[Rfam]
RNA sequence: GGGAUGUGAUGAGCGGUCCUUUUCUCGCAAAUGGCUAUGCGAAAUGGGUGUCCGCCCCAAUGCCAGUUACGACAACAUGGGCACUCCCAUUUGUACCAAUCUGAUCCC
Numbered sequence: 001g002g003g004a005u006g007u008g009a010u011g012a013g014c015g016g017u018c019c020u021u022u023u024c025u026c027g028c029a030a031a032u033g034g035c036u037a038u039g040c041g042a043a044a045u046g047g048g049u050g051u052c053c054g055c056c057c058c059a060a061u062g063c064c065a066g067u068u069a070c071g072a073c074a075a076c077a078u079g080g081g082c083a084c085u086c087c088c089a090u091u092u093g094u095a096c097c098a099a100u101c102u103g104a105u106c107c108c
Stems, first nucleotide, its partner, number of pairs: 001108004015097003025042004046086007064079002066076002
RNA: Small nucleolar RNA Z279/snoR105/snoR108
Organism: Hevea brasiliensis